[Rfam]
RNA sequence: GGAAGAGUGGCCGAGUGGCUUAAGGCGGCGGUCUUGAAAACCGUUGAACGAAAGUUCCGUGGGUUCAAAUCCUACCUCUUCCG
Numbered sequence: 001g002g003a004a005g006a007g008u009g010g011c012c013g014a015g016u017g018g019c020u021u022a023a024g025g026c027g028g029c030g031g032u033c034u035u036g037a038a039a040a041c042c043g044u045u046g047a048a049c050g051a052a053a054g055u056u057c058c059g060u061g062g063g064u065u066c067a068a069a070u071c072c073u074a075c076c077u078c079u080u081c082c083g
Stems, first nucleotide, its partner, number of pairs: 001082007010026003028044005059075005